RNA sequence: UUCAGCAAAGGGCAAACUUAUUCGAAAGAUGAGGACGCAAAGUUACAGAUCUAACGCUCAAGCUAUGAUGGCUGAACUACCUGG
Numbered sequence: 001u002u003c004a005g006c007a008a009a010g011g012g013c014a015a016a017c018u019u020a021u022u023c024g025a026a027a028g029a030u031g032a033g034g035a036c037g038c039a040a041a042g043u044u045a046c047a048g049a050u051c052u053a054a055c056g057c058u059c060a061a062g063c064u065a066u067g068a069u070g071g072c073u074g075a076a077c078u079a080c081c082u083g084g
Stems, first nucleotide, its partner, number of pairs: 012038002017033004022029002041078004046074003049069003056063002

The family of this 84-nucleotide sequence from Pontibacillus chungwhensis is "c-di-GMP-I riboswitch aptamer".
A search with the family's covariance model found it, with a score of 68 bits.
NCBI's taxonomy places the organism under Bacteria, Bacillati, Caryophanales, Bacillaceae, Pontibacillus chungwhensis.
The family's consensus secondary structure is taken from published work.